[Rfam]
RNA sequence: GCGCGUACCAAGGGGUGCCGAAUGAGGCUGAGAUCCACCACGUGGGAACCCUUUUACCUGAUCCGGAUAAUACCGGCGUAGGGAUGGUUAACAAAACAGCC
Numbered sequence: 001g002c003g004c005g006u007a008c009c010a011a012g013g014g015g016u017g018c019c020g021a022a023u024g025a026g027g028c029u030g031a032g033a034u035c036c037a038c039c040a041c042g043u044g045g046g047a048a049c050c051c052u053u054u055u056a057c058c059u060g061a062u063c064c065g066g067a068u069a070a071u072a073c074c075g076g077c078g079u080a081g082g083g084a085u086g087g088u089u090a091a092c093a094a095a096a097c098a099g100c101c
Stems, first nucleotide, its partner, number of pairs: 007088004011052004016046001017028003035045004057082004063076004
RNA: TPP riboswitch aptamer (THI element)
Organism: Marisediminitalea aggregata